[Rfam]
RNA sequence: UUGUGAAAUAACAGUGCAAUUCUCCUUUGGCAGAAGGGAGAUAUCGCAUGCAAAGCCAUUGAUCUUUAUCAAAUAGCUUUUAUUCUGCCAAAGGAGAUUUGCCUUGUAAUUCCCAC
Dot-bracket structure: ....((.((..(((.((((..((((..((((((((...............................................))))))))..))))..)))).)))..))))....
Numbered sequence: 001u002u003g004u005g006a007a008a009u010a011a012c013a014g015u016g017c018a019a020u021u022c023u024c025c026u027u028u029g030g031c032a033g034a035a036g037g038g039a040g041a042u043a044u045c046g047c048a049u050g051c052a053a054a055g056c057c058a059u060u061g062a063u064c065u066u067u068a069u070c071a072a073a074u075a076g077c078u079u080u081u082a083u084u085c086u087g088c089c090a091a092a093g094g095a096g097a098u099u100u101g102c103c104u105u106g107u108a109a110u111u112c113c114c115a116c
Stems, first nucleotide, its partner, number of pairs: 005112002008110002012106003016102004022096004028090008